Description
Shown here is a 92-nucleotide RNA from Tetranychus urticae, a member of the family "mir-5727 microRNA precursor family".
RNA sequence: GUCUUUUUCGAAAUUUAGGCAACCAUAAGAAUGACAAUGUAAUACAGUAAUUAUUGCCGCUCUUAUGAUUGCACGAAUUUCGCAGAAGCGGC
Numbered sequence: 001g002u003c004u005u006u007u008u009c010g011a012a013a014u015u016u017a018g019g020c021a022a023c024c025a026u027a028a029g030a031a032u033g034a035c036a037a038u039g040u041a042a043u044a045c046a047g048u049a050a051u052u053a054u055u056g057c058c059g060c061u062c063u064u065a066u067g068a069u070u071g072c073a074c075g076a077a078u079u080u081c082g083c084a085g086a087a088g089c090g091g092c
Stems, first nucleotide, its partner, number of pairs: 001092003005088002008086002011080006019072004024067007032059002035056005
Rfam's curators put it in the seed alignment.